[Rfam]
RNA sequence: CAGUAUCGUAGCCAAUGAGGUUUAUCUGAGGUGCGAUUAUGGCUAAUUGAAAACUUUUCCCAAUACCCCACCAUGACGACUGGAAAUAUAGUCAGCAUUGGCAAUUUUUGGAAGUUUCUACAGGAA
Numbered sequence: 001c002a003g004u005a006u007c008g009u010a011g012c013c014a015a016u017g018a019g020g021u022u023u024a025u026c027u028g029a030g031g032u033g034c035g036a037u038u039a040u041g042g043c044u045a046a047u048u049g050a051a052a053a054c055u056u057u058u059c060c061c062a063a064u065a066c067c068c069c070a071c072c073a074u075g076a077c078g079a080c081u082g083g084a085a086a087u088a089u090a091g092u093c094a095g096c097a098u099u100g101g102c103a104a105u106u107u108u109u110g111g112a113a114g115u116u117u118c119u120a121c122a123g124g125a126a
Stems, first nucleotide, its partner, number of pairs: 005037005011032003019027002071101002073098003078093005115126004
Dot-bracket structure: ....(((((.(((.....((.....))..)))))))).................................(((((..(((((......)))))..))).)).............((((....))))